[Rfam]
Source information:
Rfam assigns this 36-nucleotide sequence from Roseiflexus castenholzii to the family "CRISPR RNA direct repeat element". The family's consensus secondary structure was predicted with WAR. Lineage of the source: Bacteria > Chloroflexia > Roseiflexineae > Roseiflexus > Roseiflexus castenholzii. Rfam 15.1 lists 521 matches to the family in 5 species.
RNA sequence: UUUCCGAUUUUUCGGCUCGCAGAAGAGCACUGAAAU
Numbered sequence: 001u002u003u004c005c006g007a008u009u010u011u012u013c014g015g016c017u018c019g020c021a022g023a024a025g026a027g028c029a030c031u032g033a034a035a036u
Stems, first nucleotide, its partner, number of pairs: 010035004015028004